[Rfam]
RNA sequence: UCAGAGCAGAUCUUGCAUUAGGGACUUUCAAACAGGGUACUUGUUACUCAUUUAGUCUCGGGAAGGUCUGAGCAUGGACCGCCUAACACUCUAGCCGGGUGUAUUCCUCUGAAAUGAGGAGUGGGAGAAGAGAAAUGUGGGGUUUGCCUGUUGACCCUGGGAAGCUAUUAGCUGAGGGAUGGCAUUACCUUUUGGGAACUCCCAUGGCCUGCAUUUUGAGUUCAAUGUGCGAGGUAUUCAUUUAUAACUCAAUUCAGACUAGUCCUGCUCUGA
Numbered sequence: 001u002c003a004g005a006g007c008a009g010a011u012c013u014u015g016c017a018u019u020a021g022g023g024a025c026u027u028u029c030a031a032a033c034a035g036g037g038u039a040c041u042u043g044u045u046a047c048u049c050a051u052u053u054a055g056u057c058u059c060g061g062g063a064a065g066g067u068c069u070g071a072g073c074a075u076g077g078a079c080c081g082c083c084u085a086a087c088a089c090u091c092u093a094g095c096c097g098g099g100u101g102u103a104u105u106c107c108u109c110u111g112a113a114a115u116g117a118g119g120a121g122u123g124g125g126a127g128a129a130g131a132g133a134a135a136u137g138u139g140g141g142g143u144u145u146g147c148c149u150g151u152u153g154a155c156c157c158u159g160g161g162a163a164g165c166u167a168u169u170a171g172c173u174g175a176g177g178g179a180u181g182g183c184a185u186u187a188c189c190u191u192u193u194g195g196g197a198a199c200u201c202c203c204a205u206g207g208c209c210u211g212c213a214u215u216u217u218g219a220g221u222u223c224a225a226u227g228u229g230c231g232a233g234g235u236a237u238u239c240a241u242u243u244a245u246a247a248c249u250c251a252a253u254u255c256a257g258a259c260u261a262g263u264c265c266u267g268c269u270c271u272g273a
Stems, first nucleotide, its partner, number of pairs: 001273004007267003012233007021059005035049005068257005077209001079207002087101005105120005121205007139191003234245003
Shown here is a 273-nucleotide sequence from Thrips palmi, a member of the family "Nuclear RNase P". NCBI's taxonomy places the organism under Eukaryota, Metazoa, Pancrustacea, Thripoidea, Thrips. On this family, see Marquez et al., RNA 2005: "Structural implications of novel diversity in eucaryal RNase P RNA".